This 99-nucleotide RNA sequence from Pararhodobacter aggregans belongs to the Rfam family "Glycine riboswitch aptamer". The match comes from Rfam's covariance-model search (59 bits). Taxonomically the source falls in Pararhodobacter (Bacteria, Pseudomonadati, Pseudomonadota, Rhodobacterales).
RNA sequence: GUCGUGAACACGGGAGAAUCCGGCGGCCUCCAAACCCGCCGGUGCCGAAGGAGCAACCGCCCCGGUAAACUCUCAGGCGCAAGGGACCGCGUUCACAUU
Numbered sequence: 001g002u003c004g005u006g007a008a009c010a011c012g013g014g015a016g017a018a019u020c021c022g023g024c025g026g027c028c029u030c031c032a033a034a035c036c037c038g039c040c041g042g043u044g045c046c047g048a049a050g051g052a053g054c055a056a057c058c059g060c061c062c063c064g065g066u067a068a069a070c071u072c073u074c075a076g077g078c079g080c081a082a083g084g085g086a087c088c089g090c091g092u093u094c095a096c097a098u099u
Base pairs, nucleotide, nucleotide: 006094007093008092009091011089012088013087020042021041022040023039024038025037026036044078045077046076047074048073051072052071053070057065058064